[Rfam]
Nucleotides: 390
Base pairs, nucleotide, nucleotide: 004390005389006388007386008330009329010328011327012326013325014324016033017032018031019030020029021028038384039383040382042381043380044379045378046377047240048239049238050237051236052069053068054067055066056065057064076234077233078232079231080101081100082099083098084097085096102121103119104118105117106116107115122230123229125170126169127168128167133161134160135159136158141155142154143153176228177227178224179223180222193212194211195210196209197208198207199206200205244260245259246258264293265292266291267290268289269288270287294315295314296313297312298311299310333368334367335366336365337364338363339362340361
Number, partner (000 for none) and nucleotide at each position: 001000g002000u003000g004390u005389u006388c007386g008330g009329g010328u011327a012326a013325u014324c015000g016033c017032u018031g019030c020029a021028u022000g023000u024000u025000u026000a027000c028021a029020u030019g031018c032017a033016g034000a035000g036000g037000a038384a039383a040382g041000u042381c043380c044379a045378u046377g047240c048239u049238c050237g051236c052069a053068c054067a055066g056065c057064c058000u059000g060000a061000g062000a063000c064057g065056g066055c067054u068053g069052u070000a071000g072000u073000g074000a075000c076234c077233g078232c079231g080101c081100c082099u083098g084097a085096c086000g087000a088000a089000a090000u091000a092000a093000u094000a095000a096085g097084u098083c099082a100081g101080g102121g103119c104118a105117g106116c107115c108000u109000g110000a111000u112000a113000a114000c115107g116106g117105c118104u119103g120000a121102c122230g123229g124000c125170a126169g127168a128167a129000g130000a131000a132000c133161u134160g135159c136158c137000u138000g139000c140000c141155u142154u143153c144000a145000u146000u147000u148000u149000u150000a151000u152000g153143g154142a155141a156000a157000u158136g159135g160134c161133a162000g163000a164000a165000g166000c167128u168127u169126c170125u171000u172000g173000a174000a175000a176228g177227u178224g179223c180222c181000a182000c183000a184000g185000u186000g187000a188000c189000g190000g191000a192000g193212c194211u195210u196209u197208u198207c199206u200205g201000g202000a203000a204000a205200c206199g207198g208197a209196a210195a211194a212193g213000g214000u215000g216000g217000a218000a219000c220000g221000a222180g223179g224178u225000a226000a227177a228176c229123c230122c231079c232078g233077c234076g235000a236051g237050c238049g239048a240047g241000a242000a243000a244260c245259c246258c247000a248000a249000a250000a251000u252000u253000a254000g255000g256000u257000a258246g259245g260244g261000g262000c263000a264293c265292u266291c267290c268289u269288g270287a271000g272000a273000a274000g275000g276000a277000a278000c279000g280000a281000a282000a283000c284000g285000g286000a287270u288269c289268a290267g291266g292265a293264g294315g295314c296313a297312g298311g299310g300000g301000u302000u303000g304000u305000u306000a307000a308000c309000c310299u311298c312297c313296u314295g315294c316000a317000g318000a319000c320000a321000g322000a323000u324014g325013a326012u327011u328010g329009c330008c331000g332000c333368u334367u335366u336365u337364g338363u339362a340361c341000g342000a343000g344000g345000g346000u347000g348000a349000c350000u351000c352000c353000c354000g355000a356000u357000u358000g359000c360000a361340g362339u363338a364337c365336g366335a367334a368333g369000u370000a371000a372000c373000a374000g375000a376000a377046c378045a379044u380043g381042g382040c383039u384038u385000a386007c387000g388006g389005a390004a
Rfam assigns this 390-nucleotide sequence from Alkalicoccus halolimnae to the family "Bacterial RNase P class B".
Pairs were carried over by alignment from the consensus structure, which is taken from published work.
A reference for the family is Frank and Pace (1998), "Ribonuclease P: unity and diversity in a tRNA processing ribozyme", Annu Rev Biochem.
By type it is a ribozyme.
Ribonuclease P (RNase P) is a ubiquitous endoribonuclease, found in archaea, bacteria and eukarya as well as chloroplasts and mitochondria. Its best characterised activity is the generation of mature 5'-ends of tRNAs by cleaving the 5'-leader elements of precursor-tRNAs.
The organism belongs to Alkalicoccus, within Bacteria.